SAH (S-adenosyl-L-homocysteine) riboswitch aptamer: a 78-nucleotide RNA sequence from Ramlibacter rhizophilus. It scores 56 bits against the family's covariance model.

[Rfam]
RNA sequence: CUCCUCAAGGAGCGUUGCAGCGGCGAGACAGGUUUUCGCCGUCAGGCUUGAGAGCAUUCCCAACGGCGCUCACCUCGC
Numbered sequence: 001c002u003c004c005u006c007a008a009g010g011a012g013c014g015u016u017g018c019a020g021c022g023g024c025g026a027g028a029c030a031g032g033u034u035u036u037c038g039c040c041g042u043c044a045g046g047c048u049u050g051a052g053a054g055c056a057u058u059c060c061c062a063a064c065g066g067c068g069c070u071c072a073c074c075u076c077g078c
Base pairs, nucleotide, nucleotide: 002054004052005051006050007049008048021041022040023039024038025037026036027035028034